[Rfam]
RNA sequence: UUACGACUAUCGUUGAAUUUUUUAAAUGAAAAGCGGGGGAACCACUAGCGGAUGGCAUCUAGAUAUGACGUUCGAACGGGGUGAAUCUGUAGCACUCAAGCUCCAGUAUGGCAGCUCUCUAGCCCGAAUCCGACAGCUAACCUCGUAAGCGAAUCUGAGGAGAGAU
Numbered sequence: 001u002u003a004c005g006a007c008u009a010u011c012g013u014u015g016a017a018u019u020u021u022u023u024a025a026a027u028g029a030a031a032a033g034c035g036g037g038g039g040a041a042c043c044a045c046u047a048g049c050g051g052a053u054g055g056c057a058u059c060u061a062g063a064u065a066u067g068a069c070g071u072u073c074g075a076a077c078g079g080g081g082u083g084a085a086u087c088u089g090u091a092g093c094a095c096u097c098a099a100g101c102u103c104c105a106g107u108a109u110g111g112c113a114g115c116u117c118u119c120u121a122g123c124c125c126g127a128a129u130c131c132g133a134c135a136g137c138u139a140a141c142c143u144c145g146u147a148a149g150c151g152a153a154u155c156u157g158a159g160g161a162g163a164g165a166u
Stems, first nucleotide, its partner, number of pairs: 011151004018032003033146006043078001079131003087106003110124003